[Rfam]
RNA sequence: CGUGGUCCUCGGUAGUGGUUCACACAACUUUUCUGUUGUGUGUGCUUCGAUCGAUGAUCAUC
Numbered sequence: 001c002g003u004g005g006u007c008c009u010c011g012g013u014a015g016u017g018g019u020u021c022a023c024a025c026a027a028c029u030u031u032u033c034u035g036u037u038g039u040g041u042g043u044g045c046u047u048c049g050a051u052c053g054a055u056g057a058u059c060a061u062c
Stems, first nucleotide, its partner, number of pairs: 002061006009054005017046003021042008